A member of the RNA family "Small nucleolar RNA SNORA70" from Erinaceus europaeus, 131 nucleotides long. Rfam's curators write: snoRNA U70 seems to be exclusive to mammals and is a member of the H/ACA class of snoRNA which contain H (ANANNA) and ACA box motifs. H/ACA box snoRNAs are involved in the conversion of uridines to pseudouridines (5-ribosyluracil) a constituent of structural RNAs (transfer, ribosomal, small nuclear, and small nucleolar).
RNA sequence: CUGCAGUCAAUGAAGCUGACCGUGCUGCCCUCCCCAUGGCGCCCCGUGUGCAGUGGCUGCCAACAGCAGCCGCCUGGCCGUGUGUGCAGCUGUUGCUUGUAUAGCUGCUCUGAGGGGCCCUGGAGAUAGCC
Numbered sequence: 001c002u003g004c005a006g007u008c009a010a011u012g013a014a015g016c017u018g019a020c021c022g023u024g025c026u027g028c029c030c031u032c033c034c035c036a037u038g039g040c041g042c043c044c045c046g047u048g049u050g051c052a053g054u055g056g057c058u059g060c061c062a063a064c065a066g067c068a069g070c071c072g073c074c075u076g077g078c079c080g081u082g083u084g085u086g087c088a089g090c091u092g093u094u095g096c097u098u099g100u101a102u103a104g105c106u107g108c109u110c111u112g113a114g115g116g117g118c119c120c121u122g123g124a125g126a127u128a129g130c131c
Stems, first nucleotide, its partner, number of pairs: 002052004019047002022044001026041003076119003087107005
The source organism's lineage runs through Eukaryota, Opisthokonta, Vertebrata, Laurasiatheria and Erinaceus. On this family, see Charette and Gray, IUBMB Life 2000: "Pseudouridine in RNA: what, where, how, and why". The match comes from Rfam's covariance-model search (99 bits).